[Rfam]
RNA sequence: UGAACGAAAAGGCAAACCAUUCGAAAGGAUGGGACGCAAAGCUUAGAGUCUAAGGUAUCAAAAGAUACUAUGACAGUCAGUUACCGAA
Number, nucleotide and partner (000 for none) at each position: 001u000002g000003a000004a000005c000006g000007a000008a000009a000010a000011g000012g037013c036014a000015a000016a000017c032018c031019a030020u029021u028022c027023g000024a000025a000026a000027g022028g021029a020030u019031g018032g017033g000034a000035c000036g013037c012038a000039a000040a082041g081042c080043u079044u000045a000046g078047a077048g074049u073050c072051u000052a000053a000054g000055g068056u067057a066058u065059c000060a000061a000062a000063a000064g000065a058066u057067a056068c055069u000070a000071u000072g050073a049074c048075a000076g000077u047078c046079a043080g042081u041082u040083a000084c000085c000086g000087a000088a000
Shown here is an 88-nucleotide sequence from Acetitomaculum ruminis, a member of the family "c-di-GMP-I riboswitch aptamer". A search with the family's covariance model found it, with a score of 82 bits. GEMM was predicted in a large-scale screen for bacterial structured RNA regulatory elements. Genes associated with GEMM are involved in a diverse array of functions, including chemotaxis regulation, signal transduction, secretion and chitin. The source organism's lineage runs through Bacteria, Bacillati, Bacillota, Clostridia and Acetitomaculum ruminis. Its family is annotated with cyclic-di-GMP binding in the Gene Ontology.